[Rfam]
RNA sequence: AGGCUACAAGAUAAAAACACGAUUCGGUUGGUAGUCCGAAUGCAGACCAUGUCUGUCAGUAACCUGCCCUCCUGGGGUUGUCCUUUCUUGAAUCAUUAGCU
Numbered sequence: 001a002g003g004c005u006a007c008a009a010g011a012u013a014a015a016a017a018c019a020c021g022a023u024u025c026g027g028u029u030g031g032u033a034g035u036c037c038g039a040a041u042g043c044a045g046a047c048c049a050u051g052u053c054u055g056u057c058a059g060u061a062a063c064c065u066g067c068c069c070u071c072c073u074g075g076g077g078u079u080g081u082c083c084u085u086u087c088u089u090g091a092a093u094c095a096u097u098a099g100c101u
Stems, first nucleotide, its partner, number of pairs: 005092001007090005022041006042056006066078004

About this RNA
The family of this 101-nucleotide sequence from Vallitalea pronyensis is "azaaromatic riboswitch aptamer (yjdF RNA)". The family's consensus secondary structure is taken from published work. It scores 87 bits against the family's covariance model.